[Rfam]
RNA sequence: AUACCCUACGGAAUGCUCAGGUCCGCCGCAUCUCCUGGGUCCGUGGGGUCAGGCCGGCCGGAAAGCAGGGUGUUGAGUGGCCUCCUCGUUAAGCCCCGCCUCCGGUCGGCCACCUC
Numbered sequence: 001a002u003a004c005c006c007u008a009c010g011g012a013a014u015g016c017u018c019a020g021g022u023c024c025g026c027c028g029c030a031u032c033u034c035c036u037g038g039g040u041c042c043g044u045g046g047g048g049u050c051a052g053g054c055c056g057g058c059c060g061g062a063a064a065g066c067a068g069g070g071u072g073u074u075g076a077g078u079g080g081c082c083u084c085c086u087c088g089u090u091a092a093g094c095c096c097c098g099c100c101u102c103c104g105g106u107c108g109g110c111c112a113c114c115u116c
Stems, first nucleotide, its partner, number of pairs: 003049008016039006052111011